[Rfam]
RNA: c-di-GMP-I riboswitch aptamer
RNA sequence: CAUGUAAAUAGGCAAACUUAUUGAAAGAUGAGGACGCAAAGUAUCGGAUCUAACAUUCUUUUGAAUUAUGAUGGCCGUACUGCCAAA
Numbered sequence: 001c002a003u004g005u006a007a008a009u010a011g012g013c014a015a016a017c018u019u020a021u022u023g024a025a026a027g028a029u030g031a032g033g034a035c036g037c038a039a040a041g042u043a044u045c046g047g048a049u050c051u052a053a054c055a056u057u058c059u060u061u062u063g064a065a066u067u068a069u070g071a072u073g074g075c076c077g078u079a080c081u082g083c084c085a086a087a
Base pairs, nucleotide, nucleotide: 012037013036017032018031019030020029021028022027040081041080042079043078045077046076047075048072049071050070055066056065057064058063